Overview: Rfam assigns this 204-nucleotide RNA from Olavius sp. associated proteobacterium Delta 1 to the family "Group II catalytic intron D1-D4-3".

RNA sequence: GGUGCAGCAAUGUGCGCCUGAAGGAAGCUGGAGGCAAAAGCGCGGGUCGACGAACAGGUAUGCCCCGUACCGCAAGGUAGAGGGCAGGCAGAUAUGAGGCGGUGUAUGGUCGGGACGAGUCCGCAACACAGGACAAAGUCCUCUAUCCGUCGUUGACGUACUCCGUAUAUCUGAUCCGCCAGAGGCGGACUGAAAGUAGCCGAU
Numbered sequence: 001g002g003u004g005c006a007g008c009a010a011u012g013u014g015c016g017c018c019u020g021a022a023g024g025a026a027g028c029u030g031g032a033g034g035c036a037a038a039a040g041c042g043c044g045g046g047u048c049g050a051c052g053a054a055c056a057g058g059u060a061u062g063c064c065c066c067g068u069a070c071c072g073c074a075a076g077g078u079a080g081a082g083g084g085c086a087g088g089c090a091g092a093u094a095u096g097a098g099g100c101g102g103u104g105u106a107u108g109g110u111c112g113g114g115a116c117g118a119g120u121c122c123g124c125a126a127c128a129c130a131g132g133a134c135a136a137a138g139u140c141c142u143c144u145a146u147c148c149g150u151c152g153u154u155g156a157c158g159u160a161c162u163c164c165g166u167a168u169a170u171c172u173g174a175u176c177c178g179c180c181a182g183a184g185g186c187g188g189a190c191u192g193a194a195a196g197u198a199g200c201c202g203a204u
Base pairs, nucleotide, nucleotide: 002015003014004013005012006011027204029202030201031200034197035196039191040190043187044186045180046179047178049176088175089173090172091171092170093169099166100165101164104161105160106159107158108157113141114140115139116138119134120133121132122131